[Rfam]
RNA sequence: CUUCUGCUGUGAUGAUUUAUGAAUAAAUUCACAUGUCAGACUUCAGAGAUUUUUGCGAAAAAAUCUAUGAGAAUACAUUUCAUUUUUCCUGAGCAGGAG
Dot-bracket structure: (((((((........................................((((((......))))))...........................)))))))
Numbered sequence: 001c002u003u004c005u006g007c008u009g010u011g012a013u014g015a016u017u018u019a020u021g022a023a024u025a026a027a028u029u030c031a032c033a034u035g036u037c038a039g040a041c042u043u044c045a046g047a048g049a050u051u052u053u054u055g056c057g058a059a060a061a062a063a064u065c066u067a068u069g070a071g072a073a074u075a076c077a078u079u080u081c082a083u084u085u086u087u088c089c090u091g092a093g094c095a096g097g098a099g
Stems, first nucleotide, its partner, number of pairs: 001099007048065006